[Rfam]
RNA sequence: CCGUCCCCGUCGAUAAGGUAGCCACAAGAGGCUGCUUUCCUCAUAAAUGAGGAUAGUCGGGGAUGUUUUA
Numbered sequence: 001c002c003g004u005c006c007c008c009g010u011c012g013a014u015a016a017g018g019u020a021g022c023c024a025c026a027a028g029a030g031g032c033u034g035c036u037u038u039c040c041u042c043a044u045a046a047a048u049g050a051g052g053a054u055a056g057u058c059g060g061g062g063a064u065g066u067u068u069u070a
Stems, first nucleotide, its partner, number of pairs: 002065008011056001017036007038053005